[Rfam]
RNA sequence: CGAGUCGGCUGGGCGGCCGCGUCGGCACCCUUUCGAGGUUGCCGCCGAGGAACGUCCGGACUCCGCAGAGCAGGGUGGUUGUUAACGGCAACCCGGGGCGACCCGCGGGACAGUGCCACAGAGAACAGACCGCCGGCGCCUUCCAGGUGACCGGUAAGGGUGAAACGGUGAGGUAAGAGCUCACCAGCACCCCGGGUGACCGGGGUGGCUAGGUAAACCCCACCCGGAGCAAGGCCAAGAAUGGCCACCGCCGCGAGGCGGUGACCGGCGCAAGUGCUUGAGGGCUGCUCGCCCGAGCUUGCGGGUAGGCCGCAAGAGCCGACCGGCAACGGCCGGCCGAGAUGGAUGGCCGCCACCGGCGACGUAGUUCGCCGGCCACAGAAUCCGGCGUACAGGCCGACUCGUCCG
Numbered sequence: 001c002g003a004g005u006c007g008g009c010u011g012g013g014c015g016g017c018c019g020c021g022u023c024g025g026c027a028c029c030c031u032u033u034c035g036a037g038g039u040u041g042c043c044g045c046c047g048a049g050g051a052a053c054g055u056c057c058g059g060a061c062u063c064c065g066c067a068g069a070g071c072a073g074g075g076u077g078g079u080u081g082u083u084a085a086c087g088g089c090a091a092c093c094c095g096g097g098g099c100g101a102c103c104c105g106c107g108g109g110a111c112a113g114u115g116c117c118a119c120a121g122a123g124a125a126c127a128g129a130c131c132g133c134c135g136g137c138g139c140c141u142u143c144c145a146g147g148u149g150a151c152c153g154g155u156a157a158g159g160g161u162g163a164a165a166c167g168g169u170g171a172g173g174u175a176a177g178a179g180c181u182c183a184c185c186a187g188c189a190c191c192c193c194g195g196g197u198g199a200c201c202g203g204g205g206u207g208g209c210u211a212g213g214u215a216a217a218c219c220c221c222a223c224c225c226g227g228a229g230c231a232a233g234g235c236c237a238a239g240a241a242u243g244g245c246c247a248c249c250g251c252c253g254c255g256a257g258g259c260g261g262u263g264a265c266c267g268g269c270g271c272a273a274g275u276g277c278u279u280g281a282g283g284g285c286u287g288c289u290c291g292c293c294c295g296a297g298c299u300u301g302c303g304g305g306u307a308g309g310c311c312g313c314a315a316g317a318g319c320c321g322a323c324c325g326g327c328a329a330c331g332g333c334c335g336g337c338c339g340a341g342a343u344g345g346a347u348g349g350c351c352g353c354c355a356c357c358g359g360c361g362a363c364g365u366a367g368u369u370c371g372c373c374g375g376c377c378a379c380a381g382a383a384u385c386c387g388g389c390g391u392a393c394a395g396g397c398c399g400a401c402u403c404g405u406c407c408g
Stems, first nucleotide, its partner, number of pairs: 001404010011393001012354007020047002023044005052391003056388005061229004068290004073225005078092005093107001094105004108220002113218002115214003130159002132155005137149004167185006187209001188207008233311004270302006282294004318337004323332003
RNA: Bacterial RNase P class A